[Rfam]
RNA sequence: CUCCCGGCCGGAUCCCGUGGGGGGAAUCCGUACCGGGGAACGGAAAGCGCCCCGCUCCGACCCGUGGGG
Numbered sequence: 001c002u003c004c005c006g007g008c009c010g011g012a013u014c015c016c017g018u019g020g021g022g023g024g025a026a027u028c029c030g031u032a033c034c035g036g037g038g039a040a041c042g043g044a045a046a047g048c049g050c051c052c053c054g055c056u057c058c059g060a061c062c063c064g065u066g067g068g069g
Stems, first nucleotide, its partner, number of pairs: 001067002003037005009030005014024003042058003